Annotation:
The record is a 66-nucleotide RNA sequence from Salarchaeum sp. JOR-1, which matches "S15-Halobacteria ribosomal protein leader" in Rfam. The family is grouped with related families in Rfam's "Ribosomal Protein S15 Leader clan". On this family, see Eckert and Weinberg, BMC Microbiol 2020: "Discovery of 20 novel ribosomal leader candidates in bacteria and archaea".

RNA sequence: UAGGGAACAGCACGGCCGUACUUCCGACCUGCCAUCCGAUUGGGUGGCUUGGGAAUGCGGUAGUGC
Numbered sequence: 001u002a003g004g005g006a007a008c009a010g011c012a013c014g015g016c017c018g019u020a021c022u023u024c025c026g027a028c029c030u031g032c033c034a035u036c037c038g039a040u041u042g043g044g045u046g047g048c049u050u051g052g053g054a055a056u057g058c059g060g061u062a063g064u065g066c
Stems, first nucleotide, its partner, number of pairs: 010066004015061006024053002031048007